[Rfam]
RNA sequence: AAAUAUUUUCGGCCAAAUCUCGGUAACGAGAACGGAGGACCCAAUCACCUGGGGUUUAUUCUACAUUUGUAGAAGGGAUGAGAGUCAAACUCUUUCGCCAUCCUACCCGUCAGCUAACUUCGUCGGCUAAAGCGAAGGAGGUC
Number, nucleotide and partner (000 for none) at each position: 001a000002a000003a000004u000005a000006u000007u000008u000009u000010c000011g128012g127013c126014c125015a000016a000017a000018u031019c030020u029021c000022g000023g000024u000025a000026a000027c000028g000029a020030g019031a018032a123033c122034g121035g120036a119037g118038g000039a000040c000041c000042c051043a050044a000045u000046c000047a000048c000049c000050u043051g042052g108053g107054g106055u000056u000057u000058a000059u000060u073061c072062u071063a070064c000065a000066u000067u000068u000069g000070u063071a062072g061073a060074a000075g000076g103077g102078a101079u100080g000081a000082g000083a000084g000085u000086c000087a000088a000089a000090c000091u000092c000093u000094u000095u000096c000097g000098c000099c000100a079101u078102c077103c076104u000105a000106c054107c053108c052109g000110u000111c000112a000113g000114c000115u000116a000117a000118c037119u036120u035121c034122g033123u032124c000125g014126g013127c012128u011129a000130a000131a000132g000133c000134g000135a000136a000137g000138g000139a000140g000141g000142u000143c000
c-di-AMP riboswitch aptamer (ydaO/yuaA leader): a 143-nucleotide RNA sequence from Jeotgalibacillus campisalis. The pairing is the family consensus, mapped onto this sequence. NCBI's taxonomy places the organism under Bacteria, Bacillati, Bacillota, Caryophanaceae, Jeotgalibacillus.